[Rfam]
The record is a 126-nucleotide sequence from Saimiri boliviensis, which matches "U4atac minor spliceosomal RNA" in Rfam. By type it is a spliceosomal small nuclear RNA. Rfam 15.1 lists 1,648 matches to the family in 818 species. The family's consensus secondary structure is taken from published work. About the family: U4atac is an essential component of the minor U12-type spliceosome complex which is required for removal of the rarer class of eukaryotic introns (AT-AC, U12-type). On this family, see Shukla et al., Nucleic Acids Res 2002: "Domains of human U4atac snRNA required for U12-dependent splicing in vivo". A search with the family's covariance model found it, with a score of 70 bits. The source organism's lineage runs through Eukaryota, Chordata, Mammalia, Boreoeutheria and Saimiri boliviensis.
RNA sequence: CCCAUCCUUGCCUUGGGAUUGCGUCCCGAUCCAAUGAGUGCACAGUGAGGGUGGGACUGCAAACGUCUACACAGCACGCCUGCAUCAACUACAGCUUUGCUUUACCUUCGUGCAAUUUUUGAAGAA
Numbered sequence: 001c002c003c004a005u006c007c008u009u010g011c012c013u014u015g016g017g018a019u020u021g022c023g024u025c026c027c028g029a030u031c032c033a034a035u036g037a038g039u040g041c042a043c044a045g046u047g048a049g050g051g052u053g054g055g056a057c058u059g060c061a062a063a064c065g066u067c068u069a070c071a072c073a074g075c076a077c078g079c080c081u082g083c084a085u086c087a088a089c090u091a092c093a094g095c096u097u098u099g100c101u102u103u104a105c106c107u108u109c110g111u112g113c114a115a116u117u118u119u120u121g122a123a124g125a126a
Stems, first nucleotide, its partner, number of pairs: 007017003021060003026055002029052004038046002082113004087108001090104002093101003